[Rfam]
RNA sequence: GCCUCCAGGGGAUAAAGGCACCGCCUGCCUCCUUUUCUGGAUGGACACUCCCUUCUAAUGGUGAAUGGAAACUCCCUUUCUCAGCAGCCUGCUUACAGCGCCCCAGUAGCCCAGUGUGAUUGCAGCGGCUGCCAUCACCCCAGAAAGAAAGGCUCCCACAUC
Numbered sequence: 001g002c003c004u005c006c007a008g009g010g011g012a013u014a015a016a017g018g019c020a021c022c023g024c025c026u027g028c029c030u031c032c033u034u035u036u037c038u039g040g041a042u043g044g045a046c047a048c049u050c051c052c053u054u055c056u057a058a059u060g061g062u063g064a065a066u067g068g069a070a071a072c073u074c075c076c077u078u079u080c081u082c083a084g085c086a087g088c089c090u091g092c093u094u095a096c097a098g099c100g101c102c103c104c105a106g107u108a109g110c111c112c113a114g115u116g117u118g119a120u121u122g123c124a125g126c127g128g129c130u131g132c133c134a135u136c137a138c139c140c141c142a143g144a145a146a147g148a149a150a151g152g153c154u155c156c157c158a159c160a161u162c
Stems, first nucleotide, its partner, number of pairs: 004160001008157004013148001015053001017051002024044001029043001032040002054144003061082001063079003067076002084135001085131004093125002096122003103118001
FGF-1 internal ribosome entry site (IRES): a 162-nucleotide RNA from Neotoma lepida. Rfam links the family to the GO term ribosome binding. It scores 114 bits against the family's covariance model. The family's consensus secondary structure is taken from published work. This family represents the FGF-1 internal ribosome entry site (IRES). The FGF-1 IRES is present in the 5' UTR of the mRNA and allows cap-independent translation. It is thought that FGF-1 IRES activity is strictly controlled and highly tissue specific.